[Rfam]
RNA sequence: ACAGUGGCAUCCGAGUUAGAACUUAACGGUAUUAGCCCACCGCCCGACAUGGUCGAAGAGG
Numbered sequence: 001a002c003a004g005u006g007g008c009a010u011c012c013g014a015g016u017u018a019g020a021a022c023u024u025a026a027c028g029g030u031a032u033u034a035g036c037c038c039a040c041c042g043c044c045c046g047a048c049a050u051g052g053u054c055g056a057a058g059a060g061g
Stems, first nucleotide, its partner, number of pairs: 004040004011029003014023003
RNA: cow-rumen-1 RNA